Alphaproteobacterial ar14: a 125-nucleotide RNA sequence from Nitratireductor mangrovi.
Smr14C2 was renamed NfeR1 (Nodule Formation Efficiency RNA) highly expressed in salt stress and during the symbiotic interaction on legume roots.
The pairing is the family consensus, mapped onto this sequence.
A reference for the family is del Val et al. (2012), "A survey of sRNA families in alpha-proteobacteria", RNA Biol.
Rfam links the family to the GO term biological process involved in symbiotic interaction.

RNA sequence: CAGUUUCCGGCGGGUUGGUUCCUCCCGUUCCCGCCGGCCAGGAUGGCAGGUCAUCCUCCUCCCUGAACGACCCGCCAUCCGAAAUGUGAAGGCCCGCCGGUUUCCUCCCCCGGCGGGCCUUUUGC
Numbered sequence: 001c002a003g004u005u006u007c008c009g010g011c012g013g014g015u016u017g018g019u020u021c022c023u024c025c026c027g028u029u030c031c032c033g034c035c036g037g038c039c040a041g042g043a044u045g046g047c048a049g050g051u052c053a054u055c056c057u058c059c060u061c062c063c064u065g066a067a068c069g070a071c072c073c074g075c076c077a078u079c080c081g082a083a084a085u086g087u088g089a090a091g092g093c094c095c096g097c098c099g100g101u102u103u104c105c106u107c108c109c110c111c112g113g114c115g116g117g118c119c120u121u122u123u124g125c
Stems, first nucleotide, its partner, number of pairs: 007037008042079006049072003090120011